[Rfam]
This 79-nucleotide RNA from Medicago truncatula belongs to the Rfam family "MIR5269 microRNA precursor family". Rfam 15.1 lists 389 matches to the family in 6 species. Pairs were carried over by alignment from the consensus structure, which was predicted with RNAalifold.
RNA sequence: UUGGUUUAAAUCAUUGUAAAACUACACUUUAAAAAUUGAACUCACACAAAGUGGUGUGACAUACAUUCUUUGCAUCUAA
Numbered sequence: 001u002u003g004g005u006u007u008a009a010a011u012c013a014u015u016g017u018a019a020a021a022c023u024a025c026a027c028u029u030u031a032a033a034a035a036u037u038g039a040a041c042u043c044a045c046a047c048a049a050a051g052u053g054g055u056g057u058g059a060c061a062u063a064c065a066u067u068c069u070u071u072g073c074a075u076c077u078a079a
Base pairs, nucleotide, nucleotide: 001079002078003077004076006074009071010070013067015065016064017063018062023056024055025053026052027051028050029049030048